[Rfam]
Rfam assigns this 104-nucleotide RNA sequence from Enterococcus faecalis to the family "Anti-Q RNA". About the family: Qa RNA is a cis-regulatory element from Enterococcus faecalis which is known to negatively regulate prgQ transcription via an antisense mechanism. It is annotated as an antisense RNA. The family's consensus secondary structure is taken from published work. On this family, see Bae et al., Mol Microbiol 2004: "Characterization of cis-acting prgQ mutants: evidence for two distinct repression mechanisms by Qa RNA and PrgX protein in pheromone-inducible enterococcal plasmid pCF10". Rfam's curators put it in the seed alignment. NCBI's taxonomy places the organism under Bacteria, Bacillati, Bacillota, Enterococcaceae, Enterococcus.

RNA sequence: GUUGUAACUUAUGUUGCAGUGUUCGAGAACCGAGUAUAGUUCAUGGGAUCAGCAUGAAUUAUUUAACUAUCCUCUUGGGUUGGUAGCCCAAAGAUAGUCGGUUC
Dot-bracket structure: ((((((((....))))))))......(((((((....((((((((.......))))))))......(((((...((((((.....)))))).))))))))))))